[Rfam]
RNA sequence: CGCGCCAACAAUUUAUUGUGCUGUAUAUCGCUGGAAAUCUGGUCCAGAAGUCUCUACCACAAGACCUAAUCUUGUGACUACAGCCCAAUCACCGUCCGCU
Number, nucleotide and partner (000 for none) at each position: 001c000002g000003c000004g000005c000006c000007a000008a000009c000010a000011a000012u000013u000014u000015a000016u000017u000018g086019u000020g084021c083022u082023g081024u080025a079026u000027a000028u000029c000030g000031c047032u046033g045034g044035a043036a000037a000038u000039c000040u000041g000042g000043u035044c034045c033046a032047g031048a000049a000050g000051u000052c000053u000054c000055u000056a000057c000058c076059a075060c074061a073062a072063g071064a070065c000066c000067u000068a000069a000070u064071c063072u062073u061074g060075u059076g058077a000078c000079u025080a024081c023082a022083g021084c020085c000086c018087a000088a000089u000090c000091a000092c000093c000094g000095u000096c000097c000098g000099c000100u000